Shown here is a 252-nucleotide sequence from Trifolium subterraneum, a member of the family "MIR2655 microRNA precursor family". The family has 25 seed sequences and 892 matches in Rfam 15.1. The source organism's lineage runs through Eukaryota, Streptophytina, Mesangiospermae, rosids and Trifolium.

[Rfam]
RNA sequence: CCCUUAUCUUUUAAAAGUUUCAAAUUGGUCCCUUAUCUUUUUUUUAGGUUUCAAGUUGGUCCCUUCCGUCAAUUUUUGUACUGUUACCGUUAAAUUUGGACACGUGUCAUCUAUCUAAGUGUGCCACGUGUCCAAAUUAGUUUGCCACGUGUCAAAACUUAACGGAAAUAGUUAAAAAAUUGACGGAAGGGACCAACUCGAAACCUAAAAUAAAGAUAAGGGACCAACUUGAAACUUUUAAAAGAUAAGGGA
Numbered sequence: 001c002c003c004u005u006a007u008c009u010u011u012u013a014a015a016a017g018u019u020u021c022a023a024a025u026u027g028g029u030c031c032c033u034u035a036u037c038u039u040u041u042u043u044u045u046a047g048g049u050u051u052c053a054a055g056u057u058g059g060u061c062c063c064u065u066c067c068g069u070c071a072a073u074u075u076u077u078g079u080a081c082u083g084u085u086a087c088c089g090u091u092a093a094a095u096u097u098g099g100a101c102a103c104g105u106g107u108c109a110u111c112u113a114u115c116u117a118a119g120u121g122u123g124c125c126a127c128g129u130g131u132c133c134a135a136a137u138u139a140g141u142u143u144g145c146c147a148c149g150u151g152u153c154a155a156a157a158c159u160u161a162a163c164g165g166a167a168a169u170a171g172u173u174a175a176a177a178a179a180u181u182g183a184c185g186g187a188a189g190g191g192a193c194c195a196a197c198u199c200g201a202a203a204c205c206u207a208a209a210a211u212a213a214a215g216a217u218a219a220g221g222g223a224c225c226a227a228c229u230u231g232a233a234a235c236u237u238u239u240a241a242a243a244g245a246u247a248a249g250g251g252a
Base pairs, nucleotide, nucleotide: 002250003249004248005247006246007245008244023229025227027225028224029223031221032220033219034218035217036216037215038214039213040212042210043209045207046206047205